[Rfam]
RNA: Small nucleolar RNA SNORA40
Organism: Platysternon megacephalum
RNA sequence: AGCACAUCUCCAGUUUUUGUUUUUUGCUGUGGACAAAAUCUUGGAGUAAGUGCUAAGAAUAAACCCUUCUCUUGCAACCCACAGCUCAUCAAUAUAUGAGCUGUGUUACUUUUCAGAAGGGACAAU
Numbered sequence: 001a002g003c004a005c006a007u008c009u010c011c012a013g014u015u016u017u018u019g020u021u022u023u024u025u026g027c028u029g030u031g032g033a034c035a036a037a038a039u040c041u042u043g044g045a046g047u048a049a050g051u052g053c054u055a056a057g058a059a060u061a062a063a064c065c066c067u068u069c070u071c072u073u074g075c076a077a078c079c080c081a082c083a084g085c086u087c088a089u090c091a092a093u094a095u096a097u098g099a100g101c102u103g104u105g106u107u108a109c110u111u112u113u114c115a116g117a118a119g120g121g122a123c124a125a126u
Base pairs, nucleotide, nucleotide: 001054002053003052004051005050007048009046010044013040015038016037017036018035019034020033025031065121066120067119070117071116072115074113080105081104082103083102084101085100086099087098088097089096